[Rfam]
RNA sequence: CCUGCACCUGGACAGAAAGACCCUAUGAAGCUUUACUGUAGCCUGGAAUUGGCUUCGGGCUUCGCUUGCGCAGCAUAGGUGGGAGGCGUGGAAGGUUUCCUUGCGGGGAAACUGGAGCCAUCACUGAGAUACCACUCUGGCGAAGCUAGAAGUCUAACCUCGACCCCUCAGCGGGGGGAGGAACCGUUUCAGGUGGGCAGUUUGACUGGGGCGGUCGCCUCCUAAAAGGUAACGGAGGCGCGCAAAGGUUCCCUCAGGCUGGUUGGAAAUCAGCCGUCGAGUGUAAAGGCACAAGGGAGCUUGACUGCGAGACCUACAAGUCGAGCAGGGACGAAAGUCGGCCUUAGUGAUCCGACGGUUCCGAGUGGAAGGGCCGUCGCUCAACGGAUAAAAGUUACUCUAGGGAUAACAGGCUGAUCUCCCCCAAGAGUUCACAUCGACGGGGAGGUUUGGCACCUCGAUGUCGGCUCAUCGCAACCUGGGGCGGAAGUACGUCCCAAGGGUUGGGCUGUUCGCCCAUUAAAGCGGUACGUGAGCUGGGUUCAGAACGUCGUGAGACAGUUCGGUCCAUAUCCGGUGCAGGCGUA
Numbered sequence: 001c002c003u004g005c006a007c008c009u010g011g012a013c014a015g016a017a018a019g020a021c022c023c024u025a026u027g028a029a030g031c032u033u034u035a036c037u038g039u040a041g042c043c044u045g046g047a048a049u050u051g052g053c054u055u056c057g058g059g060c061u062u063c064g065c066u067u068g069c070g071c072a073g074c075a076u077a078g079g080u081g082g083g084a085g086g087c088g089u090g091g092a093a094g095g096u097u098u099c100c101u102u103g104c105g106g107g108g109a110a111a112c113u114g115g116a117g118c119c120a121u122c123a124c125u126g127a128g129a130u131a132c133c134a135c136u137c138u139g140g141c142g143a144a145g146c147u148a149g150a151a152g153u154c155u156a157a158c159c160u161c162g163a164c165c166c167c168u169c170a171g172c173g174g175g176g177g178g179a180g181g182a183a184c185c186g187u188u189u190c191a192g193g194u195g196g197g198c199a200g201u202u203u204g205a206c207u208g209g210g211g212c213g214g215u216c217g218c219c220u221c222c223u224a225a226a227a228g229g230u231a232a233c234g235g236a237g238g239c240g241c242g243c244a245a246a247g248g249u250u251c252c253c254u255c256a257g258g259c260u261g262g263u264u265g266g267a268a269a270u271c272a273g274c275c276g277u278c279g280a281g282u283g284u285a286a287a288g289g290c291a292c293a294a295g296g297g298a299g300c301u302u303g304a305c306u307g308c309g310a311g312a313c314c315u316a317c318a319a320g321u322c323g324a325g326c327a328g329g330g331a332c333g334a335a336a337g338u339c340g341g342c343c344u345u346a347g348u349g350a351u352c353c354g355a356c357g358g359u360u361c362c363g364a365g366u367g368g369a370a371g372g373g374c375c376g377u378c379g380c381u382c383a384a385c386g387g388a389u390a391a392a393a394g395u396u397a398c399u400c401u402a403g404g405g406a407u408a409a410c411a412g413g414c415u416g417a418u419c420u421c422c423c424c425c426a427a428g429a430g431u432u433c434a435c436a437u438c439g440a441c442g443g444g445g446a447g448g449u450u451u452g453g454c455a456c457c458u459c460g461a462u463g464u465c466g467g468c469u470c471a472u473c474g475c476a477a478c479c480u481g482g483g484g485c486g487g488a489a490g491u492a493c494g495u496c497c498c499a500a501g502g503g504u505u506g507g508g509c510u511g512u513u514c515g516c517c518c519a520u521u522a523a524a525g526c527g528g529u530a531c532g533u534g535a536g537c538u539g540g541g542u543u544c545a546g547a548a549c550g551u552c553g554u555g556a557g558a559c560a561g562u563u564c565g566g567u568c569c570a571u572a573u574c575c576g577g578u579g580c581a582g583g584c585g586u587a
Stems, first nucleotide, its partner, number of pairs: 001583008010575003015569001022404004027400002029396005035201004042193007051154006058147009068137001078136005085119003094113008158181003164176004204216004217239006240385001242342002248300006254280002257275006281290002305328004311322003330339003353379007361372002413454003417451001418448007428438002465540001466538004470532001471529005478503002481498006505519005546564004550559003
The family of this 587-nucleotide part of an RNA from Oxynema aestuarii is "Bacterial large subunit ribosomal RNA". Lineage of the source: Bacteria > Bacillati > Cyanophyceae > Oscillatoriophycideae > Oxynema aestuarii. Its family is annotated with ribosome and structural constituent of ribosome in the Gene Ontology. The match comes from Rfam's covariance-model search (2712 bits).